[Rfam]
RNA sequence: GCGUUAGCGUAGCCAAGUGGUUACUUCAUUGCGGAAAGCCACCGGGCAGCUCCUGAGUUGUCGGGUUUGGACCACUGGCGCUGUCUAACGUUUUA
Numbered sequence: 001g002c003g004u005u006a007g008c009g010u011a012g013c014c015a016a017g018u019g020g021u022u023a024c025u026u027c028a029u030u031g032c033g034g035a036a037a038g039c040c041a042c043c044g045g046g047c048a049g050c051u052c053c054u055g056a057g058u059u060g061u062c063g064g065g066u067u068u069g070g071a072c073c074a075c076u077g078g079c080g081c082u083g084u085c086u087a088a089c090g091u092u093u094u095a
Stems, first nucleotide, its partner, number of pairs: 002090006012079004017075004025071004